RNA sequence: AUUUCUGUUUCGUCAGAACAAAGAGAAGCCGAUCUAUUCUAUAACCCGAUAAGUACAUACGCAAUGGGG
Numbered sequence: 001a002u003u004u005c006u007g008u009u010u011c012g013u014c015a016g017a018a019c020a021a022a023g024a025g026a027a028g029c030c031g032a033u034c035u036a037u038u039c040u041a042u043a044a045c046c047c048g049a050u051a052a053g054u055a056c057a058u059a060c061g062c063a064a065u066g067g068g069g
Base pairs, nucleotide, nucleotide: 003023004022006020007019008018009017011016045068046067047066053060054059

Rfam assigns this 69-nucleotide sequence from Musa balbisiana to the family "Plastid-clpP 5UTR RNA". The match comes from Rfam's covariance-model search (67 bits). The source organism's lineage runs through Eukaryota, Liliopsida, commelinids, Musaceae and Musa. Pairs were carried over by alignment from the consensus structure, which was predicted with LocARNA. By type it is a cis-regulatory element. About the family: Plastid clpP is a non-coding RNA (ncRNA) recognised in plastids. Rfam 15.1 lists 2,105 matches to the family in 526 species.